This 74-nucleotide RNA from Nitratidesulfovibrio vulgaris belongs to the Rfam family "tRNA". The literature on the family includes a 1997 paper in Nucleic Acids Res by Lowe and Eddy, "tRNAscan-SE: a program for improved detection of transfer RNA genes in genomic sequence".
RNA sequence: GCGCUGGUAGCUCAGUUGGAUAGAGCAACAGGCUACGAACCUGUAGGUCGGAGGUUCGAAUCCUUCCCAGCGCG
Dot-bracket structure: (((((((..((((.........)))).(((((.......))))).....(((((.......)))))))))))).